Shown here is a 120-nucleotide RNA from Amycolatopsis acidiphila, a member of the family "Actinobacteria sRNA Ms_IGR-7". The base pairs follow the family's consensus structure.

[Rfam]
RNA sequence: UCGAAGUGCCUUCCAGAACUGGGGUCAGGUUGCUGUGUGAGAACUCCAAUCAUCCCAGCUCAGAGGGCACUUCUCUCAUUCCGACACACCCACCCCAGCCCCACACCUCGGUGGAUCGAG
Numbered sequence: 001u002c003g004a005a006g007u008g009c010c011u012u013c014c015a016g017a018a019c020u021g022g023g024g025u026c027a028g029g030u031u032g033c034u035g036u037g038u039g040a041g042a043a044c045u046c047c048a049a050u051c052a053u054c055c056c057a058g059c060u061c062a063g064a065g066g067g068c069a070c071u072u073c074u075c076u077c078a079u080u081c082c083g084a085c086a087c088a089c090c091c092a093c094c095c096c097a098g099c100c101c102c103a104c105a106c107c108u109c110g111g112u113g114g115a116u117c118g119a120g
Stems, first nucleotide, its partner, number of pairs: 003073011016061002019058005028051003032047001035044002101118001103116001106113001